[Rfam]
RNA: Glycine riboswitch aptamer
RNA sequence: CAAGACCACGCGGGAGAGACCCCGGCAGGGGCGCCGACGGGGCAAUACUCCCCAGUAACCUCUCAGGCACCAGGACCGCGUGGAAGAG
Numbered sequence: 001c002a003a004g005a006c007c008a009c010g011c012g013g014g015a016g017a018g019a020c021c022c023c024g025g026c027a028g029g030g031g032c033g034c035c036g037a038c039g040g041g042g043c044a045a046u047a048c049u050c051c052c053c054a055g056u057a058a059c060c061u062c063u064c065a066g067g068c069a070c071c072a073g074g075a076c077c078g079c080g081u082g083g084a085a086g087a088g
Stems, first nucleotide, its partner, number of pairs: 006083008020031004033068003036064002040062003046055001